[Rfam]
RNA: Bacterial RNase P class A
Organism: Candidatus Macondimonas diazotrophica
RNA sequence: GGAGUCGGCCAGGCAGUCGCUCCUUGGGCUUUGUGCCGAAGGGGAGGAAAGUCCGGGCUCCGCAGGGCGGGAUGCCAGGUAAUGCCUGGGCGGCGAGAGCCGACGGAAAGUGCCACAGAAAAUAUACCGCCGACGGCCUUCGGGUCGGGUAAGGGUGAAAAGGUGCGGUAAGAGCGCACCGCGCCGGUGGUAACACGCGGCGGCAGGGUAAACCCCAUCCGGAGCAAGAUCGAAUAGGGGAACAUGGGGCUUCGUCUCCCGGCGCGCGGCCCGUGCGCAGUUCCCGGGUGGAUCGCUUGAGGUGCGCGGUGACGCGCAUCCCAGAUGAAUGGCUGCCCAUGACAGAACCCGGCUUAUCGGCCGGCUCCAUCU
Numbered sequence: 001g002g003a004g005u006c007g008g009c010c011a012g013g014c015a016g017u018c019g020c021u022c023c024u025u026g027g028g029c030u031u032u033g034u035g036c037c038g039a040a041g042g043g044g045a046g047g048a049a050a051g052u053c054c055g056g057g058c059u060c061c062g063c064a065g066g067g068c069g070g071g072a073u074g075c076c077a078g079g080u081a082a083u084g085c086c087u088g089g090g091c092g093g094c095g096a097g098a099g100c101c102g103a104c105g106g107a108a109a110g111u112g113c114c115a116c117a118g119a120a121a122a123u124a125u126a127c128c129g130c131c132g133a134c135g136g137c138c139u140u141c142g143g144g145u146c147g148g149g150u151a152a153g154g155g156u157g158a159a160a161a162g163g164u165g166c167g168g169u170a171a172g173a174g175c176g177c178a179c180c181g182c183g184c185c186g187g188u189g190g191u192a193a194c195a196c197g198c199g200g201c202g203g204c205a206g207g208g209u210a211a212a213c214c215c216c217a218u219c220c221g222g223a224g225c226a227a228g229a230u231c232g233a234a235u236a237g238g239g240g241a242a243c244a245u246g247g248g249g250c251u252u253c254g255u256c257u258c259c260c261g262g263c264g265c266g267c268g269g270c271c272c273g274u275g276c277g278c279a280g281u282u283c284c285c286g287g288g289u290g291g292a293u294c295g296c297u298u299g300a301g302g303u304g305c306g307c308g309g310u311g312a313c314g315c316g317c318a319u320c321c322c323a324g325a326u327g328a329a330u331g332g333c334u335g336c337c338c339a340u341g342a343c344a345g346a347a348c349c350c351g352g353c354u355u356a357u358c359g360g361c362c363g364g365c366u367c368c369a370u371c372u
Stems, first nucleotide, its partner, number of pairs: 001368010011357001012337007020044006027037002049355003053352005058224004065272004070220005075089005090104001091102004105215002110213002112209003127154002129150003134147005162180006181204001182202005187196003228294004238285006263277005301320008